[Rfam]
RNA: dfrA-dnaX RNA
RNA sequence: ACGCCGUAUGGUAAAACUAUAAUAAUUUCAGCAUAAUAACAAUGAGUUAUAGUAAGGGAAAUAUGCUAUAAU
Numbered sequence: 001a002c003g004c005c006g007u008a009u010g011g012u013a014a015a016a017c018u019a020u021a022a023u024a025a026u027u028u029c030a031g032c033a034u035a036a037u038a039a040c041a042a043u044g045a046g047u048u049a050u051a052g053u054a055a056g057g058g059a060a061a062u063a064u065g066c067u068a069u070a071a072u
Base pairs, nucleotide, nucleotide: 030067031066032065033064034063035062037060